[Rfam]
RNA: mir-399 microRNA precursor family
Organism: Brassica oleracea
RNA sequence: AAAUGCAUUACAGGGCAAGAUCUCCUUUGGCAGGAAUCCAUUACUUCAGUCUUACAUAUGCAUAUAUGUUUGUGGUGAGCUCUCUGCCAAAGGAGAUUUGUCCGGUAAUUCUUUU
Number, nucleotide and partner (000 for none) at each position: 001a000002a000003a000004u000005g111006c000007a109008u108009u107010a000011c105012a000013g103014g102015g101016c100017a099018a098019g097020a000021u000022c095023u094024c093025c092026u000027u000028u089029g088030g087031c086032a085033g084034g083035a000036a081037u000038c000039c000040a000041u000042u000043a000044c000045u000046u000047c000048a000049g000050u000051c000052u000053u000054a000055c000056a000057u000058a000059u000060g000061c000062a000063u000064a000065u000066a000067u000068g000069u000070u000071u000072g000073u000074g000075g000076u000077g000078a000079g000080c000081u036082c000083u034084c033085u032086g031087c030088c029089a028090a000091a000092g025093g024094a023095g022096a000097u019098u018099u017100g016101u015102c014103c013104g000105g011106u000107a009108a008109u007110u000111c005112u000113u000114u000115u000